[Rfam]
The family of this 92-nucleotide RNA sequence from Planococcus rifietoensis is "c-di-GMP-I riboswitch aptamer".
The family's consensus secondary structure is taken from published work.
Taxonomically the source falls in Planococcus (Bacteria, Bacillati, Bacillota, Caryophanales).
The literature on the family includes a 2008 paper in Science by Sudarsan et al., "Riboswitches in Eubacteria Sense the Second Messenger Cyclic Di-GMP".
RNA sequence: AACUGAAAAAGGCAAACUUACCUGAAAAGGAAGGACGCAAAGCCAUGAGCCUACCCACUGCUUAAUCAGUGCACGGUCGUCAGGUUGCCAGG
Numbered sequence: 001a002a003c004u005g006a007a008a009a010a011g012g013c014a015a016a017c018u019u020a021c022c023u024g025a026a027a028a029g030g031a032a033g034g035a036c037g038c039a040a041a042g043c044c045a046u047g048a049g050c051c052u053a054c055c056c057a058c059u060g061c062u063u064a065a066u067c068a069g070u071g072c073a074c075g076g077u078c079g080u081c082a083g084g085u086u087g088c089c090a091g092g
Stems, first nucleotide, its partner, number of pairs: 012038002017033003021030003041086004046082003049077003056071004